RNA sequence: GGGGAGCAUCCAAAAGCUGGGAUGUUAACUGAUACAAUCUUCCUACAUAAAACCUCUUAGUGUUUCCUGCUUGCAGUAUUUAAGCAAUACCUGCAAGUCUCAGAUUCUCAGAGACAUGA
Numbered sequence: 001g002g003g004g005a006g007c008a009u010c011c012a013a014a015a016g017c018u019g020g021g022a023u024g025u026u027a028a029c030u031g032a033u034a035c036a037a038u039c040u041u042c043c044u045a046c047a048u049a050a051a052a053c054c055u056c057u058u059a060g061u062g063u064u065u066c067c068u069g070c071u072u073g074c075a076g077u078a079u080u081u082a083a084g085c086a087a088u089a090c091c092u093g094c095a096a097g098u099c100u101c102a103g104a105u106u107c108u109c110a111g112a113g114a115c116a117u118g119a
Base pairs, nucleotide, nucleotide: 001030002029005026006025007024008023009022010021011020055112056111057110069098070097071096072095073094074093075092076091080087
A member of the RNA family "Small nucleolar RNA snoR104" from Rosa chinensis, 119 nucleotides long. Rfam classes the family as an H/ACA-box small nucleolar RNA. For this family Rfam cites "Experimental RNomics: identification of 140 candidates for small non-messenger RNAs in the plant Arabidopsis thaliana" (Marker et al., Curr Biol, 2002). NCBI's taxonomy places the organism under Eukaryota, Magnoliopsida, Mesangiospermae, Rosales, Rosa.